[Rfam]
A member of the RNA family "SAM riboswitch aptamer (S box leader)" from Paenibacillus selenitireducens, 131 nucleotides long. Pairs were carried over by alignment from the consensus structure, which is taken from published work. NCBI's taxonomy places the organism under Bacteria, Bacillota, Caryophanales, Paenibacillaceae, Paenibacillus. A search with the family's covariance model found it, with a score of 78 bits.
RNA sequence: UUCUUAUCGAGAGCGGCGGAGGGAAUAGGCCCUGUGAAGCCCGGCAACCGAUUCUAGGAUCAGUAAAUAGCUGAUCAGAAUGACAUGGUGCUAAAUCCUUCAGAAUUCUUGUGAAUUCUGGCAGAUGAGAA
Numbered sequence: 001u002u003c004u005u006a007u008c009g010a011g012a013g014c015g016g017c018g019g020a021g022g023g024a025a026u027a028g029g030c031c032c033u034g035u036g037a038a039g040c041c042c043g044g045c046a047a048c049c050g051a052u053u054c055u056a057g058g059a060u061c062a063g064u065a066a067a068u069a070g071c072u073g074a075u076c077a078g079a080a081u082g083a084c085a086u087g088g089u090g091c092u093a094a095a096u097c098c099u100u101c102a103g104a105a106u107u108c109u110u111g112u113g114a115a116u117u118c119u120g121g122c123a124g125a126u127g128a129g130a131a
Stems, first nucleotide, its partner, number of pairs: 001131008013042001015041003021032003027099003043092004048088002050084001052082001096123001101120006